Rfam assigns this 78-nucleotide RNA from Mycobacterium intermedium to the family "ASpks TB sRNA". By type it is an antisense RNA. The match comes from Rfam's covariance-model search (71 bits).

RNA sequence: CUUGAUCGACCCCAGCCACAGCGGUGACCCGUCCUCCGGGCGCGAUUGCCCGUAGGUGGCCAACAACGCUUGAGCCUC
Dot-bracket structure: ..............(((.....))...).....(((....((...(((.(((....))).)))...))...)))....